[Rfam]
RNA sequence: UACAUUGUGUGAUGAAAUUGGAAAAAUCUUAGGACACCUUCCUACACAGCAGAACAACUGCUGUGGAUGAGAAUGAAUUUUCCGUGCUGACGAUGUA
Numbered sequence: 001u002a003c004a005u006u007g008u009g010u011g012a013u014g015a016a017a018u019u020g021g022a023a024a025a026a027u028c029u030u031a032g033g034a035c036a037c038c039u040u041c042c043u044a045c046a047c048a049g050c051a052g053a054a055c056a057a058c059u060g061c062u063g064u065g066g067a068u069g070a071g072a073a074u075g076a077a078u079u080u081u082c083c084g085u086g087c088u089g090a091c092g093a094u095g096u097a
Stems, first nucleotide, its partner, number of pairs: 001097007042049002
RNA: Small nucleolar RNA snoR31/Z110/Z27
Organism: Vigna angularis